[Rfam]
RNA: Small nucleolar RNA SNORD56
Organism: Nannospalax galili
RNA sequence: CUACAAUGAUGUUAAGAUUUUUCCUCAACAGAGUUUACCACCUAGUGACUGUUGAUAACUUUGAGUCCAAGUGA
Numbered sequence: 001c002u003a004c005a006a007u008g009a010u011g012u013u014a015a016g017a018u019u020u021u022u023c024c025u026c027a028a029c030a031g032a033g034u035u036u037a038c039c040a041c042c043u044a045g046u047g048a049c050u051g052u053u054g055a056u057a058a059c060u061u062u063g064a065g066u067c068c069a070a071g072u073g074a
Stems, first nucleotide, its partner, number of pairs: 002073003008026002011023001